RNA: mir-135 microRNA precursor family
RNA sequence: UUCCUGGUGCUGUUUAUGGCUUUUUAUUCCUAUCUGACUGGUGUGAUGGUUCAUAUAGGGAUGGAAGCCAUGCACGGCGCCCGGAG
Numbered sequence: 001u002u003c004c005u006g007g008u009g010c011u012g013u014u015u016a017u018g019g020c021u022u023u024u025u026a027u028u029c030c031u032a033u034c035u036g037a038c039u040g041g042u043g044u045g046a047u048g049g050u051u052c053a054u055a056u057a058g059g060g061a062u063g064g065a066a067g068c069c070a071u072g073c074a075c076g077g078c079g080c081c082c083g084g085a086g
Stems, first nucleotide, its partner, number of pairs: 002085003006081008015072009026062008035053003
Dot-bracket structure: .(((.((((((((.(((((((((..((((((((.(((.............))).)))))))).))))))))).)))))))).))).